Rfam assigns this 172-nucleotide RNA sequence from Oryctolagus cuniculus to the family "Spi-1 (PU.1) 5' UTR regulatory element". The match comes from Rfam's covariance-model search (61 bits). From the family's description: Spi-1 regulates myeloid gene expression during haemopoietic development. This family represents a regulatory element found in the 5' UTR of Spi-1 mRNA which is able to inhibit the translation Spi-1 transcripts by 8-fold. For this family Rfam cites "The conserved 5'-untranslated leader of Spi-1 (PU.1) mRNA is highly structured and potently inhibits translation in vitro but not in vivo" (Hensold et al., Nucleic Acids Res, 1997). Gene Ontology term of the family: translation repressor activity. It is annotated as a cis-regulatory element.

RNA sequence: CUCACCCAGGGCUUCCUGUAGCUCAGGGGGCAGGCCUGAGCCCUGCGUCCGCCCCCCCCCCCCCCCACCGCCCCCACGGGGCUCCCCAUUCCGAGGGUGUCCCCACCGGGCUCCCACCCAAAAUAAGGAUCUGAACGUUCUAAAUUUUUCUGGAGGGUUCAAGGCGGUUAAA
Number, nucleotide and partner (000 for none) at each position: 001c000002u000003c000004a000005c000006c000007c000008a044009g043010g042011g041012c040013u039014u000015c038016c000017u000018g035019u034020a000021g031022c030023u029024c028025a000026g000027g000028g024029g023030g022031c021032a000033g000034g019035c018036c000037u000038g015039a013040g012041c011042c010043c009044u008045g000046c166047g165048u164049c163050c000051g000052c000053c000054c000055c000056c000057c000058c000059c000060c000061c157062c156063c155064c000065c153066c152067a151068c000069c099070g098071c097072c096073c095074c000075c000076a000077c093078g092079g091080g090081g089082c000083u000084c000085c000086c000087c000088a000089u081090u080091c079092c078093g077094a000095g073096g072097g071098u070099g069100u144101c000102c000103c000104c000105a000106c000107c133108g000109g131110g130111c000112u128113c127114c000115c000116a000117c000118c000119c000120a000121a000122a000123a000124u000125a000126a000127g113128g112129a000130u110131c109132u000133g107134a000135a000136c000137g000138u000139u000140c000141u000142a000143a000144a100145u000146u000147u000148u000149u000150c000151u067152g066153g065154a000155g063156g062157g061158u000159u000160c000161a000162a000163g049164g048165c047166g046167g000168u000169u000170a000171a000172a000